This 120-nucleotide RNA from Nakamurella alba belongs to the Rfam family "SAM (S-adenosyl methionine) riboswitch aptamer".

RNA sequence: GGUCACGAGUUCCAGCGACAAGCCCUGGCUUGCUGGACGGCAACCCUCACGGAUGUGGCGGGGUGCUCCAGGUGACGACCGGGUGCGGACCGGAAGAGCCGGUCCGUGCAAGCACAGCCG
Numbered sequence: 001g002g003u004c005a006c007g008a009g010u011u012c013c014a015g016c017g018a019c020a021a022g023c024c025c026u027g028g029c030u031u032g033c034u035g036g037a038c039g040g041c042a043a044c045c046c047u048c049a050c051g052g053a054u055g056u057g058g059c060g061g062g063g064u065g066c067u068c069c070a071g072g073u074g075a076c077g078a079c080c081g082g083g084u085g086c087g088g089a090c091c092g093g094a095a096g097a098g099c100c101g102g103u104c105c106g107u108g109c110a111a112g113c114a115c116a117g118c119c120g
Base pairs, nucleotide, nucleotide: 001080002079003078004077009038011037012036013035014034015033016032021030022029039067040066041065044063045062046061048058050057083109084108085107086106087105088104089103090102091101092100
SAM-IV is a mRNA element that regulates gene expression via direct sensing of S-adenosylmethionine (SAM or AdoMet). It scores 92 bits against the family's covariance model.